[Rfam]
RNA: mir-8364 microRNA precursor family
Organism: Pristionchus pacificus
RNA sequence: UCUUCAUUUUUCACACUCUCUCAUCGGUCAGAGUGACGAGAGAGUGUGUAAAAUGAAGAGA
Numbered sequence: 001u002c003u004u005c006a007u008u009u010u011u012c013a014c015a016c017u018c019u020c021u022c023a024u025c026g027g028u029c030a031g032a033g034u035g036a037c038g039a040g041a042g043a044g045u046g047u048g049u050a051a052a053a054u055g056a057a058g059a060g061a
Base pairs, nucleotide, nucleotide: 001059002058003057004056005055006054007053010050012048013047014046015045016044017043019041020040021039022038